[Rfam]
RNA: U11 spliceosomal RNA
RNA sequence: AAAAAGGGCUUCUGCCGUGUGUGGCACGGGGAAGGUCGCGCGCCACCCCCGCGGAAUCGACAUCAAGAGAUUUCGGAAGCACAAUUUUUGUGAAGGAGGGCUGCCGGUAACCGCUUGUUCUGGCACCCCG
Numbered sequence: 001a002a003a004a005a006g007g008g009c010u011u012c013u014g015c016c017g018u019g020u021g022u023g024g025c026a027c028g029g030g031g032a033a034g035g036u037c038g039c040g041c042g043c044c045a046c047c048c049c050c051g052c053g054g055a056a057u058c059g060a061c062a063u064c065a066a067g068a069g070a071u072u073u074c075g076g077a078a079g080c081a082c083a084a085u086u087u088u089u090g091u092g093a094a095g096g097a098g099g100g101c102u103g104c105c106g107g108u109a110a111c112c113g114c115u116u117g118u119u120c121u122g123g124c125a126c127c128c129c130g
Stems, first nucleotide, its partner, number of pairs: 008080005013026005027051005034044002052075007098128003103124005109119003